[Rfam]
RNA: Small nucleolar RNA SNORA9
RNA sequence: CCGCAAGUCUCCAGUGUGCCCAGGUCUGCAGUGACCCUGUGCAGUCCUGCAGUGCUUGACAGAGCCGUUUUUAAAUGAUUUGAGGCCUUGCUCUGCUCUCUCCAGAACAAGGUUAUAGAAAUUUCAGACAAUU
Numbered sequence: 001c002c003g004c005a006a007g008u009c010u011c012c013a014g015u016g017u018g019c020c021c022a023g024g025u026c027u028g029c030a031g032u033g034a035c036c037c038u039g040u041g042c043a044g045u046c047c048u049g050c051a052g053u054g055c056u057u058g059a060c061a062g063a064g065c066c067g068u069u070u071u072u073a074a075a076u077g078a079u080u081u082g083a084g085g086c087c088u089u090g091c092u093c094u095g096c097u098c099u100c101u102c103c104a105g106a107a108c109a110a111g112g113u114u115a116u117a118g119a120a121a122u123u124u125c126a127g128a129c130a131a132u133u
Stems, first nucleotide, its partner, number of pairs: 004058005017043003023036004071126001073124003086112005093105003